This 85-nucleotide RNA sequence from Bifidobacterium choloepi belongs to the Rfam family "tRNA". The match comes from Rfam's covariance-model search (58 bits). The family's RNA type in Rfam is transfer RNA. Taxonomically the source falls in Bifidobacterium (Bacteria, Bacillati, Actinomycetota, Bifidobacteriaceae). Transfer RNA (tRNA) molecules are approximately 80 nucleotides in length.
Nucleotides: 085
Stems, first nucleotide, its partner, number of pairs: 001084007010026003028044005061077005
Number, partner (000 for none) and nucleotide at each position: 001084g002083g003082a004081g005080a006079g007078a008000u009000g010026u011025c012024u013000g014000a015000g016000c017000g018000g019000u020000c021000g022000a023000a024012a025011g026010a027000g028044a029043c030042g031041g032040u033000c034000u035000u036000g037000a038000a039000a040032a041031c042030c043029g044028u045000u046000g047000a048000u049000g050000g051000g052000c053000a054000a055000c056000c057000a058000u059000c060000c061077g062076c063075g064074a065073g066000u067000u068000c069000g070000a071000a072000u073065c074064u075063c076062g077061c078007u079006c080005u081004c082003u083002c084001c085000g